The family of this 107-nucleotide RNA from Cellvibrio polysaccharolyticus is "Glycine riboswitch aptamer". The base pairs follow the family's consensus structure. NCBI's taxonomy places the organism under Bacteria, Pseudomonadati, Gammaproteobacteria, Cellvibrionaceae, Cellvibrio. The match comes from Rfam's covariance-model search (51 bits).
[Rfam]
RNA sequence: AUUUCGCCGUCUGGAGAGAGGUUGACUUGAUCAAUCCACCGAAGGGGCAAGUUAUCAACAGGUGUUGGUGACGUAAACUCUCAGGUACCCGGGACAGAGGGAGAGGC
Numbered sequence: 001a002u003u004u005c006g007c008c009g010u011c012u013g014g015a016g017a018g019a020g021g022u023u024g025a026c027u028u029g030a031u032c033a034a035u036c037c038a039c040c041g042a043a044g045g046g047g048c049a050a051g052u053u054a055u056c057a058a059c060a061g062g063u064g065u066u067g068g069u070g071a072c073g074u075a076a077a078c079u080c081u082c083a084g085g086u087a088c089c090c091g092g093g094a095c096a097g098a099g100g101g102a103g104a105g106g107c
Stems, first nucleotide, its partner, number of pairs: 007101002010098004020036004038086003041082002045080003051074002